[Rfam]
RNA sequence: CGCAGUGUCAAAGGGGAGUAGCUUGAAUUGGACAUCCAAUUUCAAUAAAGUCGUCAUUCCAUGAUUAUCUAAUCAUCGGCUUUAUUGGCAUUCAACUGAUUGCUAGCGAGACCUUUGCCUUUAUGGCAGGGGUCUCGCUUUUUUUUGUGUAGCCCGCGCCAAUUCU
Number, nucleotide and partner (000 for none) at each position: 001c000002g000003c000004a000005g000006u000007g000008u000009c000010a000011a000012a000013g000014g000015g000016g000017a000018g000019u000020a000021g000022c000023u000024u000025g043026a042027a041028u000029u000030g000031g000032a000033c000034a000035u000036c000037c000038a000039a000040u000041u027042u026043c025044a086045a085046u084047a083048a082049a081050g080051u079052c078053g077054u000055c000056a000057u000058u000059c000060c000061a076062u075063g074064a073065u072066u000067a000068u000069c000070u000071a000072a065073u064074c063075a062076u061077c053078g052079g051080c050081u049082u048083u047084a046085u045086u044087g166088g165089c000090a163091u162092u161093c000094a000095a000096c000097u000098g000099a000100u000101u000102g000103c000104u000105a000106g000107c000108g000109a000110g000111a000112c000113c000114u000115u000116u000117g000118c000119c000120u000121u000122u000123a000124u000125g000126g000127c000128a000129g000130g000131g000132g000133u000134c000135u000136c000137g000138c000139u000140u000141u000142u000143u000144u000145u000146u000147g000148u000149g000150u000151a000152g000153c000154c000155c000156g000157c000158g000159c000160c000161a092162a091163u090164u000165c088166u087

The family of this 166-nucleotide sequence from Neobacillus piezotolerans is "Manganese Mn2+ riboswitch aptamer (yybP-ykoY)". The base pairs follow the family's consensus structure. On this family, see Argaman et al., Curr Biol 2001: "Novel small RNA-encoding genes in the intergenic regions of Escherichia coli". Taxonomically the source falls in Neobacillus (Bacteria, Bacillati, Bacilli, Bacillaceae). Rfam's curators write: This RNA was originally discovered in E. coli during a large scale screen and was named SraF. The family was later found to exist upstream of related families of protein genes in many bacteria, including the the yybP and ykoK genes in B. subtilis. It scores 56 bits against the family's covariance model.